The family of this 78-nucleotide RNA sequence from Microctonus aethiopoides is "mir-71 microRNA precursor family".
[Rfam]
RNA sequence: GCUACAUGAAAGACAAGGUAGUGAGAUGCGUUAUAAUAACGCAAUGAACAUCUCACUACCCAUGUCUUUCAAGUAGAA
Dot-bracket structure: .......((((((((.((.(((((((((....................))))))))).))..))))))))........
The literature on the family includes a 2010 paper in BMC Genomics by Liu et al., "MicroRNAs of Bombyx mori identified by Solexa sequencing". The source organism's lineage runs through Eukaryota, Metazoa, Eumetazoa, Hymenoptera and Microctonus.